Source information: This 91-nucleotide RNA from Tumebacillus flagellatus belongs to the Rfam family "c-di-GMP-I-GGC riboswitch aptamer". The family's consensus secondary structure is taken from published work.
[Rfam]
RNA sequence: AGUGAAAAGGGCAAAUCAUGGGAAACCAUGAGACGCAAAGCCAAGGGCCUGGACCAUGACGCAAGUUGUGGAUGGCAGCCGGUUGCCACAG
Dot-bracket structure: ..((......((...((((((....))))))..[))..((((..(((((........................))).]))))))..))...